[Rfam]
RNA sequence: CCUUCUGUGAUGAUUUUAUCAGUAUGACUUUCGUUCUUCUGAGUGUGCUGAAGCUACAUUUUAGGUACUGAGAAGG
Numbered sequence: 001c002c003u004u005c006u007g008u009g010a011u012g013a014u015u016u017u018a019u020c021a022g023u024a025u026g027a028c029u030u031u032c033g034u035u036c037u038u039c040u041g042a043g044u045g046u047g048c049u050g051a052a053g054c055u056a057c058a059u060u061u062u063a064g065g066u067a068c069u070g071a072g073a074a075g076g
Stems, first nucleotide, its partner, number of pairs: 001076003005072001

This 76-nucleotide RNA sequence from Enhydra lutris belongs to the Rfam family "Small nucleolar RNA SNORD59". The match comes from Rfam's covariance-model search (79 bits). A reference for the family is Galardi et al. (2002), "Purified box C/D snoRNPs are able to reproduce site-specific 2'-O-methylation of target RNA in vitro", Mol Cell Biol. Its family is annotated with nucleolus and RNA processing in the Gene Ontology.